The record is a 48-nucleotide RNA, which matches "uup RNA" in Rfam. It is annotated as a cis-regulatory element. The base pairs follow the family's consensus structure, which is taken from published work. It is one of the family's seed sequences.
[Rfam]
Nucleotides: 048
Base pairs, nucleotide, nucleotide: 011047012046013045014044015043017041018040019039
Number, partner (000 for none) and nucleotide at each position: 001000a002000u003000u004000g005000g006000a007000u008000g009000c010000g011047c012046u013045c014044c015043g016000g017041a018040c019039a020000a021000a022000u023000g024000g025000a026000u027000a028000a029000g030000a031000u032000g033000a034000a035000g036000c037000a038000u039019u040018g041017u042000a043015c044014g045013g046012a047011g048000u